[Rfam]
RNA sequence: UAAUUGCAUACGCUGAAUUCUUUUAGAAGCGGGGGAACCAAUUUUUUGGGGCGAAUUCCGUAAGGAUAGGAUAAUUCUUUCAGUCCGAGCCCGGCAGCUAACUCCGUAGGCGUUGAAAGGAGAUAUU
Numbered sequence: 001u002a003a004u005u006g007c008a009u010a011c012g013c014u015g016a017a018u019u020c021u022u023u024u025a026g027a028a029g030c031g032g033g034g035g036a037a038c039c040a041a042u043u044u045u046u047u048g049g050g051g052c053g054a055a056u057u058c059c060g061u062a063a064g065g066a067u068a069g070g071a072u073a074a075u076u077c078u079u080u081c082a083g084u085c086c087g088a089g090c091c092c093g094g095c096a097g098c099u100a101a102c103u104c105c106g107u108a109g110g111c112g113u114u115g116a117a118a119g120g121a122g123a124u125a126u127u
Stems, first nucleotide, its partner, number of pairs: 011112004018028003029107006039048002049092003057066003069086004

The family of this 127-nucleotide RNA sequence from Defluviitalea raffinosedens is "c-di-AMP riboswitch aptamer (ydaO/yuaA leader)". Rfam describes the family as follows. This family represents a conserved RNA structure found upstream of the ydaO and yuaA genes in Bacillus subtilis and related genes in other bacteria. Rfam links the family to the GO terms regulation of gene expression and cyclic-di-AMP binding. Taxonomically the source falls in Defluviitalea (Bacteria, Bacillota, Clostridia, Lachnospirales).